[Rfam]
RNA sequence: AACCCGUCACAACGGCUUCCUGGCGUGGCGGGGCUGACCCUAAUGGAGCA
Numbered sequence: 001a002a003c004c005c006g007u008c009a010c011a012a013c014g015g016c017u018u019c020c021u022g023g024c025g026u027g028g029c030g031g032g033g034c035u036g037a038c039c040c041u042a043a044u045g046g047a048g049c050a
Stems, first nucleotide, its partner, number of pairs: 004031007013022002015049003019046002

This 50-nucleotide RNA sequence from Roseovarius sp. THAF27 belongs to the Rfam family "SAM/SAH riboswitch aptamer". The match comes from Rfam's covariance-model search (58 bits). The organism belongs to Roseovarius, within Bacteria. On this family, see Weickhmann et al., Nucleic Acids Res 2019: "The structure of the SAM/SAH-binding riboswitch". Its family is annotated with S-adenosylmethionine metabolic process and regulation of gene expression in the Gene Ontology.